This 49-nucleotide sequence from Tritonibacter multivorans belongs to the Rfam family "SAM/SAH riboswitch aptamer".
[Rfam]
RNA sequence: UUGCUGCCACAACGGCUUCCUGGCGUGGCAGUGUUUUUCCAAUGGAGCA
Numbered sequence: 001u002u003g004c005u006g007c008c009a010c011a012a013c014g015g016c017u018u019c020c021u022g023g024c025g026u027g028g029c030a031g032u033g034u035u036u037u038u039c040c041a042a043u044g045g046a047g048c049a
Stems, first nucleotide, its partner, number of pairs: 004031007013022002015048003019045002

Annotation
Rfam links the family to the GO terms S-adenosylmethionine metabolic process and regulation of gene expression. NCBI's taxonomy places the organism under Bacteria, Pseudomonadati, Rhodobacterales, Paracoccaceae, Tritonibacter.